[Rfam]
Nucleotides: 361
Stems, first nucleotide, its partner, number of pairs: 001357007020330007033318004038314004044305005049066005055079005117132005137182006144168003148164003155194002199226004205220001210242006244279004249274004255268003259297004263292003334350005
Number, partner (000 for none) and nucleotide at each position: 001357g002356g003355g004354g005353g006352c007351g008000a009000c010000c011000u012000g013000g014000u015000u016000u017000c018000g019000a020330c021329a022328g023327g024326g025325g026324u027000u028000g029000c030000a031000a032000a033318g034317c035316a036315g037000c038314g039313c040312a041311g042000g043000g044305c045304a046303u047302a048301c049066c050065g051064a052063g053062g054000g055079c056078u057077g058076g059075u060000c061000a062053c063052c064051u065050c066049g067000u068000a069000a070000a071000u072000a073000c074000a075059a076058c077057c078056a079055g080000a081000a082000a083000a084000a085000a086000c087000a088000u089000a090000a091000c092000u093000g094000c095000a096000a097000a098000c099000g100000a101000u102000a103000a104000c105000u106000c107000g108000u109000a110000c111000g112000c113000a114000c115000u116000a117132g118131c119130a120129g121128c122000u123000u124000a125000a126000u127000u128121g129120c130119u131118g132117u133000c134000u135000a136000g137182c138181u139180c140179u141178a142177c143000a144168c145167c146166a147000u148164c149163u150162c151000u152000u153000c154000c155194c156193u157000g158000g159000g160000g161000u162150g163149g164148g165000c166146u167145g168144g169000a170000a171000a172000c173000a174000g175000c176000a177142g178141u179140a180139g181138a182137g183000u184000c185000a186000u187000u188000c189000a190000c191000a192000g193156g194155g195000a196000a197000u198000c199226g200225c201224g202223u203000a204000a205220a206000g207000c208000c209000g210242g211241g212240u213239c214238a215237c216000u217000u218000g219000g220205u221000c222000a223202g224201c225200g226199c227000u228000a229000a230000a231000u232000c233000u234000a235000a236000g237215g238214u239213g240212a241211c242210u243000c244279g245278u246277c247276u248000u249274g250273c251272c252271a253000c254000a255268g256267c257266g258000u259297g260296u261295g262294c263292g264291u265290c266257c267256g268255c269000g270000u271252u272251g273250g274249c275000c276247g277246g278245a279244u280000u281000a282000a283000a284000u285000c286000a287000a288000a289000u290265g291264g292263c293000a294262g295261c296260a297259c298000u299000a300000a301048g302047u303046a304045u305044g306000u307000a308000g309000a310000a311041c312040u313039g314038u315036c316035u317034g318033u319000a320000g321000a322000g323000u324026a325025c326024u327023c328022u329021u330020g331000g332000a333000c334350g335349c336348g337347g338346g339000u340000u341000c342000g343000a344000u345000u346338c347337c348336c349335g350334c351007c352006g353005c354004c355003u356002c357001c358000a359000c360000c361000a